The record is a 63-nucleotide sequence from Ictalurus punctatus, which matches "mir-459 microRNA precursor family" in Rfam. The source organism's lineage runs through Eukaryota, Chordata, Vertebrata, Teleostei and Ictalurus. Pairs were carried over by alignment from the consensus structure, which was predicted with RNAalifold. Rfam's curators put it in the seed alignment.
RNA sequence: UCAGUAACAAGGAUUCAUCCUGUUGUGGUACUCAAAUCCAACAGGGAAUCUCUGUUACUGGGG
Numbered sequence: 001u002c003a004g005u006a007a008c009a010a011g012g013a014u015u016c017a018u019c020c021u022g023u024u025g026u027g028g029u030a031c032u033c034a035a036a037u038c039c040a041a042c043a044g045g046g047a048a049u050c051u052c053u054g055u056u057a058c059u060g061g062g063g
Stems, first nucleotide, its partner, number of pairs: 001061009011051006019045007027038003
Dot-bracket structure: (((((((((.((((((..(((((((.(((......)))))))))))))))).)))))))))..